[Rfam]
RNA: RT-15 RNA
Organism: Ottowia flava
RNA sequence: AGGCGCCUGCAGCAUGACGGUCAAGGCUCUCAUGCCCGUGCGCACAUGGGAUCUGGUCGCGCCGCUGGCCCACAAGGCCACCGCCAGGCACACCACGGAAACCGCCGCGCCCGCGCGCGGCACGUCCGGUGCAGUUGCCCCGCUGAUCGGCGCAAGCCUUCGGCCGGGUGACGUCGAUAGCGCGAUGGGGCC
Numbered sequence: 001a002g003g004c005g006c007c008u009g010c011a012g013c014a015u016g017a018c019g020g021u022c023a024a025g026g027c028u029c030u031c032a033u034g035c036c037c038g039u040g041c042g043c044a045c046a047u048g049g050g051a052u053c054u055g056g057u058c059g060c061g062c063c064g065c066u067g068g069c070c071c072a073c074a075a076g077g078c079c080a081c082c083g084c085c086a087g088g089c090a091c092a093c094c095a096c097g098g099a100a101a102c103c104g105c106c107g108c109g110c111c112c113g114c115g116c117g118c119g120g121c122a123c124g125u126c127c128g129g130u131g132c133a134g135u136u137g138c139c140c141c142g143c144u145g146a147u148c149g150g151c152g153c154a155a156g157c158c159u160u161c162g163g164c165c166g167g168g169u170g171a172c173g174u175c176g177a178u179a180g181c182g183c184g185a186u187g188g189g190g191c192c
Stems, first nucleotide, its partner, number of pairs: 004042003012035006019028003057185006063083002066080005088132004096128004102124001105120005135171002138168003142164005149158003